Rfam assigns this 134-nucleotide sequence from Galemys pyrenaicus to the family "Small nucleolar RNA U109". A search with the family's covariance model found it, with a score of 74 bits. The base pairs follow the family's consensus structure, which was predicted with WAR. Rfam classes the family as an H/ACA-box small nucleolar RNA. Its family is annotated with nucleolus and RNA processing in the Gene Ontology. A reference for the family is Reddy et al. (1981), "Pseudouridine residues in the 5'-terminus of uridine-rich nuclear RNA I (U1 RNA)", Biochem Biophys Res Commun.
[Rfam]
RNA sequence: AUGUAUGGGGAAGUGUCUCCUCUUCAUCCCUUCAGGAGCAGGGUAUAUCCAUAAGGUGCUACAUUUAAAAGGGAGUUCUCAGAGGUUUCAACUUAAUAAUAGAGAUUGAGUAGUGGUAUAUUUCUUCUUCAUAA
Numbered sequence: 001a002u003g004u005a006u007g008g009g010g011a012a013g014u015g016u017c018u019c020c021u022c023u024u025c026a027u028c029c030c031u032u033c034a035g036g037a038g039c040a041g042g043g044u045a046u047a048u049c050c051a052u053a054a055g056g057u058g059c060u061a062c063a064u065u066u067a068a069a070a071g072g073g074a075g076u077u078c079u080c081a082g083a084g085g086u087u088u089c090a091a092c093u094u095a096a097u098a099a100u101a102g103a104g105a106u107u108g109a110g111u112a113g114u115g116g117u118a119u120a121u122u123u124c125u126u127c128u129u130c131a132u133a134a
Stems, first nucleotide, its partner, number of pairs: 003059004016042003020038004072127004084114001088110001089108003093104002
Dot-bracket structure: ..((((.........(((.((((...........)))).))).............))))............((((........(...((((.((........)).))).)...).........)))).......